[Rfam]
RNA: Small nucleolar RNA Z279/snoR105/snoR108
Organism: Lathyrus oleraceus
RNA sequence: GAGAUAUGAUGAGUGGUCUAGUCUCGCUUUACAUAUGCGACUUGGGUGUCUGCCCCAAGCCUGGUUACGAAAAUUGGGCACUCUACUUUGACCAAUUUGAUCUC
Dot-bracket structure: ((((.........(((((.....((((.........))))...(((((((...........((((.......)))))))))))......)))))......))))